[Rfam]
The family of this 261-nucleotide part of an RNA from Luteitalea pratensis is "Bacterial large subunit ribosomal RNA".
RNA sequence: GGAGAUUUGAGUGGGGCUGACCUUAGUACGAGAGGACCGGGUUGGACGAACCUCUAGUGUACCAGUUGUCACGCCAGUGGCAGCGCUGGGUAGCUACGUUCGGAAGGGAGAAACGCUGAAAGCAUCUAAGCGUGAAACCCUCCACGAGAUGAGAUCUCCCUGGACGCAAGUCCCUGAAGGCUCCUGGUAGACCACCAGGUGAUAGGCCAGGUGUGUAAGGGUGGUGACAUCCUCAGCUUACUGGUACUAAUCAGCCGUGAG
Numbered sequence: 001g002g003a004g005a006u007u008u009g010a011g012u013g014g015g016g017c018u019g020a021c022c023u024u025a026g027u028a029c030g031a032g033a034g035g036a037c038c039g040g041g042u043u044g045g046a047c048g049a050a051c052c053u054c055u056a057g058u059g060u061a062c063c064a065g066u067u068g069u070c071a072c073g074c075c076a077g078u079g080g081c082a083g084c085g086c087u088g089g090g091u092a093g094c095u096a097c098g099u100u101c102g103g104a105a106g107g108g109a110g111a112a113a114c115g116c117u118g119a120a121a122g123c124a125u126c127u128a129a130g131c132g133u134g135a136a137a138c139c140c141u142c143c144a145c146g147a148g149a150u151g152a153g154a155u156c157u158c159c160c161u162g163g164a165c166g167c168a169a170g171u172c173c174c175u176g177a178a179g180g181c182u183c184c185u186g187g188u189a190g191a192c193c194a195c196c197a198g199g200u201g202a203u204a205g206g207c208c209a210g211g212u213g214u215g216u217a218a219g220g221g222u223g224g225u226g227a228c229a230u231c232c233u234c235a236g237c238u239u240a241c242u243g244g245u246a247c248u249a250a251u252c253a254g255c256c257g258u259g260a261g
Stems, first nucleotide, its partner, number of pairs: 001159008011145004017045007047102005055096003062089005067082006106140003113133005162174002176258001179256004183199005203249003206245005211239001213237001219232005